[Rfam]
Nucleotides: 099
Base pairs, nucleotide, nucleotide: 007093008092009091010090011089012088013087014086015085016084017083018082021079022078024076025075026074027073028072029071030070031069
Number, partner (000 for none) and nucleotide at each position: 001000g002000a003000g004000a005000a006000a007093u008092g009091g010090g011089a012088g013087u014086u015085u016084c017083u018082u019000c020000c021079a022078g023000g024076c025075c026074a027073a028072a029071a030070c031069a032000a033000u034000a035000u036000a037000c038000a039000u040000c041000a042000u043000g044000u045000u046000c047000u048000c049000u050000a051000g052000a053000a054000u055000c056000a057000g058000u059000a060000g061000a062000u063000u064000u065000u066000u067000a068000u069031u070030g071029u072028u073027u074026u075025g076024g077000a078022u079021u080000g081000a082018a083017g084016g085015g086014a087013g088012c089011u090010c091009c092008u093007a094000a095000u096000u097000c098000u099000u